The record is a 127-nucleotide RNA sequence from Mustela putorius, which matches "Small nucleolar RNA SNORA25" in Rfam. NCBI's taxonomy places the organism under Eukaryota, Bilateria, Eutheria, Boreoeutheria, Mustela putorius. About the family: ACA25 is a member of the H/ACA class of snoRNA that guide the sites of modification of uridines to pseudouridines. The family's consensus secondary structure was predicted with RNAfold. Rfam classes the family as an H/ACA-box small nucleolar RNA.
[Rfam]
RNA sequence: AGGUCAUUUCAAUGAGGGAUUGGGGGACUGAAACCAAGAACUCUUAACACUGUGACCAAAUAUUGAAGUUCUCCAUAGGAUGUAAGCAUUACUCAACAGUGCCAUGGUUUCCUGAGGAGAUUGCAGU
Dot-bracket structure: .((((((......(((((.((..((........))..)).)))))......))))))............(((((..((((....(....((((....))))...)....))))..))))).......